SAM-I/IV (S-adenosyl methionine) riboswitch aptamer: a 136-nucleotide RNA from Spartinivicinus marinus. A reference for the family is Weinberg et al. (2008), "The aptamer core of SAM-IV riboswitches mimics the ligand-binding site of SAM-I riboswitches", RNA. Its family is annotated with regulation of gene expression and S-adenosylmethionine metabolic process in the Gene Ontology.

RNA sequence: GACAUACAUCAAGAAUAGGACUGACGUCCUUGCCAACCUGCUAACCUAAGCAAGGUGGAUUCCGGUGACGGAGAUGUGGCCACGGCCCAAUUGAGAUGCAAUCGUGCAUCAAGGCUAGGCAACUAAAUAGGCUCUC
Number, nucleotide and partner (000 for none) at each position: 001g000002a000003c000004a000005u000006a077007c076008a075009u074010c073011a000012a000013g000014a000015a031016u000017a030018g029019g028020a027021c026022u000023g000024a000025c000026g021027u020028c019029c018030u017031u015032g000033c058034c057035a000036a000037c055038c054039u053040g051041c050042u049043a000044a000045c131046c130047u129048a128049a042050g041051c040052a000053a039054g038055g037056u000057g034058g033059a000060u000061u000062c000063c000064g000065g000066u000067g000068a000069c000070g000071g000072a000073g010074a009075u008076g007077u006078g000079g120080c119081c118082a000083c000084g000085g000086c000087c000088c000089a000090a000091u000092u000093g000094a000095g000096a000097u000098g000099c000100a000101a000102u000103c000104g000105u000106g000107c000108a000109u000110c000111a000112a000113g000114g000115c000116u000117a000118g081119g080120c079121a000122a000123c000124u000125a000126a000127a000128u048129a047130g046131g045132c000133u000134c000135u000136c000